A member of the RNA family "Glycine riboswitch aptamer" from Desulfovibrio ferrophilus, 81 nucleotides long. The match comes from Rfam's covariance-model search (62 bits). Taxonomically the source falls in Desulfovibrio (Bacteria, Pseudomonadati, Desulfovibrionales, Desulfovibrionaceae).
RNA sequence: AUGAAGGUAGCAGGAGAGUCCCCACCUCGAGUGGAGCGCCGAAGAAGUAAAUCUUUCAGGCAAAUGGACUGCUACCGGACG
Numbered sequence: 001a002u003g004a005a006g007g008u009a010g011c012a013g014g015a016g017a018g019u020c021c022c023c024a025c026c027u028c029g030a031g032u033g034g035a036g037c038g039c040c041g042a043a044g045a046a047g048u049a050a051a052u053c054u055u056u057c058a059g060g061c062a063a064a065u066g067g068a069c070u071g072c073u074a075c076c077g078g079a080c081g
Stems, first nucleotide, its partner, number of pairs: 006076008020036001022034002038061003041057002045055003